[Rfam]
Notes
Small nucleolar RNA Z159/U59: an 84-nucleotide RNA from Salix dunnii. By type it is a C/D-box small nucleolar RNA. The organism belongs to Salix, within Eukaryota. The literature on the family includes a 2003 paper in Nucleic Acids Res by Chen et al., "The high diversity of snoRNAs in plants: identification and comparative study of 120 snoRNA genes from Oryza sativa".
RNA sequence: GUCUCUAAUGAUGAUCAAAACUUUCGUUCUUCCGACAAGUUAAAACCAUGUGGAAGCUUUUAUGGAGACCUGAACUGAAGAGAC
Number, nucleotide and partner (000 for none) at each position: 001g000002u000003c082004u081005c080006u079007a000008a000009u000010g000011a000012u000013g000014a000015u000016c000017a000018a000019a000020a000021c000022u000023u000024u000025c000026g000027u000028u000029c000030u000031u000032c000033c000034g000035a000036c000037a000038a000039g000040u000041u000042a000043a000044a000045a000046c000047c000048a000049u000050g000051u000052g000053g000054a000055a000056g000057c000058u000059u000060u000061u000062a000063u000064g000065g000066a000067g000068a000069c000070c000071u000072g000073a000074a000075c000076u000077g000078a000079a006080g005081a004082g003083a000084c000